tRNA: an 87-nucleotide RNA sequence from Skermanella aerolata. Rfam links the family to the GO term triplet codon-amino acid adaptor activity. The family's RNA type in Rfam is transfer RNA.
[Rfam]
RNA sequence: GGAGGGAUGGCUGAGAGGCCUAUAGCGCCCGCCUGAUAAGCGGGUACACCGGCAACGGUGUCGCGGGUUUGAAUCCCGCUCCCUAUU
Numbered sequence: 001g002g003a004g005g006g007a008u009g010g011c012u013g014a015g016a017g018g019c020c021u022a023u024a025g026c027g028c029c030c031g032c033c034u035g036a037u038a039a040g041c042g043g044g045u046a047c048a049c050c051g052g053c054a055a056c057g058g059u060g061u062c063g064c065g066g067g068u069u070u071g072a073a074u075c076c077c078g079c080u081c082c083c084u085a086u087u
Base pairs, nucleotide, nucleotide: 001086003084004083005082006081007080010026011025012024013023028044029043030042031041032040063079064078065077066076067075